Small nucleolar RNA SNORA25: a 130-nucleotide RNA sequence from Carlito syrichta. Rfam links the family to the GO terms RNA processing and nucleolus.
RNA sequence: AGAUCAUUUCAAAGAGAGUUUCUAGGGCUGUAAAACCAGGAUCCCUUAAUGCUAUGAUGAAAAAUUAAAGUUCAUCCAUGAGAUGAAAUAGUCACUCAAGAGAGCUAUGUUUUCCUAAGGAUAUACAGGA
Numbered sequence: 001a002g003a004u005c006a007u008u009u010c011a012a013a014g015a016g017a018g019u020u021u022c023u024a025g026g027g028c029u030g031u032a033a034a035a036c037c038a039g040g041a042u043c044c045c046u047u048a049a050u051g052c053u054a055u056g057a058u059g060a061a062a063a064a065u066u067a068a069a070g071u072u073c074a075u076c077c078a079u080g081a082g083a084u085g086a087a088a089u090a091g092u093c094a095c096u097c098a099a100g101a102g103a104g105c106u107a108u109g110u111u112u113u114c115c116u117a118a119g120g121a122u123a124u125a126c127a128g129g130a
Stems, first nucleotide, its partner, number of pairs: 003058005014047003018043001020041002023039001026037002072123001074122004080116001082114002088108004093104001095102002
The family's RNA type in Rfam is H/ACA-box small nucleolar RNA. The family has 30 seed sequences and 1,129 matches in Rfam 15.1. From the family's description: ACA25 is a member of the H/ACA class of snoRNA that guide the sites of modification of uridines to pseudouridines. The family's consensus secondary structure was predicted with RNAfold. Lineage of the source: Eukaryota > Eumetazoa > Teleostomi > Mammalia > Carlito.